[Rfam]
RNA sequence: GGCGGGUCUCCUCGCAUGGUGAUUUUGAGCAACGGGUCAGGGGCGGAAGCCAGCAGCCCACUUGGAAAAACCAGUGCCGAGGGUCAGGCUCGCCACC
Numbered sequence: 001g002g003c004g005g006g007u008c009u010c011c012u013c014g015c016a017u018g019g020u021g022a023u024u025u026u027g028a029g030c031a032a033c034g035g036g037u038c039a040g041g042g043g044c045g046g047a048a049g050c051c052a053g054c055a056g057c058c059c060a061c062u063u064g065g066a067a068a069a070a071c072c073a074g075u076g077c078c079g080a081g082g083g084u085c086a087g088g089c090u091c092g093c094c095a096c097c
Stems, first nucleotide, its partner, number of pairs: 004091005009083006015074001017073004023067007034059004042051003